[Rfam]
RNA sequence: CUCUAGUUUAGCAGAUAAAUUAGGGCAAAGGAG
Numbered sequence: 001c002u003c004u005a006g007u008u009u010a011g012c013a014g015a016u017a018a019a020u021u022a023g024g025g026c027a028a029a030g031g032a033g
Base pairs, nucleotide, nucleotide: 001025002024003023004022005021006020007019008018009017010016
RNA: L31-Firmicutes ribosomal protein leader
Organism: Bavariicoccus seileri